[Rfam]
RNA sequence: UUUUGGAGAUGAUGAUUCUUAUCAGAGGCUGUUUCUGAGGUGAGCCAAGAACUCUUCAGUGCUGCAAAUACCUGAUUUGCCAUUCUGAUCAAAAG
Numbered sequence: 001u002u003u004u005g006g007a008g009a010u011g012a013u014g015a016u017u018c019u020u021a022u023c024a025g026a027g028g029c030u031g032u033u034u035c036u037g038a039g040g041u042g043a044g045c046c047a048a049g050a051a052c053u054c055u056u057c058a059g060u061g062c063u064g065c066a067a068a069u070a071c072c073u074g075a076u077u078u079g080c081c082a083u084u085c086u087g088a089u090c091a092a093a094a095g
Base pairs, nucleotide, nucleotide: 003093004092006090007089042054043053044052064080065079066078067077068076
Small nucleolar RNA Z119: a 95-nucleotide RNA from Eragrostis curvula. The base pairs follow the family's consensus structure, which was predicted with PFOLD. It scores 83 bits against the family's covariance model. NCBI's taxonomy places the organism under Eukaryota, Viridiplantae, Petrosaviidae, Poales, Eragrostis.